[Rfam]
The record is a 114-nucleotide RNA sequence from Holothuria leucospilota, which matches "Potassium channel RNA editing signal" in Rfam. The family's RNA type in Rfam is cis-regulatory element. Lineage of the source: Eukaryota > Holothuroidea > Aspidochirotacea > Aspidochirotida > Holothuria. Rfam links the family to the GO term adenosine to inosine editing. Rfam 15.1 lists 14,095 matches to the family in 1,000 species. For this family Rfam cites "Control of human potassium channel inactivation by editing of a small mRNA hairpin" (Bhalla et al., Nat Struct Mol Biol, 2004).
RNA sequence: GUAGGGUAUGGAGACAUGAAACCCCAAAGUACCGGUGCUAAGAUAGUUGGAUCCCUGUGUGCUAUAACCGGUGUGCUCACUAUAGCACUGCCCGUGCCUGUCAUUGUCUCAAAC
Number, nucleotide and partner (000 for none) at each position: 001g114002u113003a000004g000005g110006g000007u000008a107009u106010g105011g104012a000013g102014a101015c100016a099017u000018g097019a000020a095021a000022c000023c000024c000025c000026a000027a000028a000029g000030u000031a000032c000033c000034g000035g000036u000037g077038c000039u075040a074041a000042g000043a000044u000045a000046g000047u000048u000049g063050g062051a000052u000053c000054c000055c000056u000057g000058u000059g000060u000061g000062c050063u049064a000065u000066a000067a000068c000069c000070g000071g000072u000073g000074u040075g039076c000077u037078c000079a000080c000081u000082a000083u000084a000085g000086c000087a000088c000089u000090g000091c000092c000093c000094g000095u020096g000097c018098c000099u016100g015101u014102c013103a000104u011105u010106g009107u008108c000109u000110c005111a000112a000113a002114c001